Shown here is a 71-nucleotide RNA sequence from Otolemur garnettii, a member of the family "Small nucleolar RNA SNORD110".

RNA sequence: UUGCAGUGAUGACUUUUCUUAUCUGUCAAUCCCCUGAGUGCAGUCACUGAUGUCUCUGUGUCUCUGAGCAA
Dot-bracket structure: ((((...............................................................))))
The family is grouped with related families in Rfam's "SNORD110 clan". It is annotated as a C/D-box small nucleolar RNA.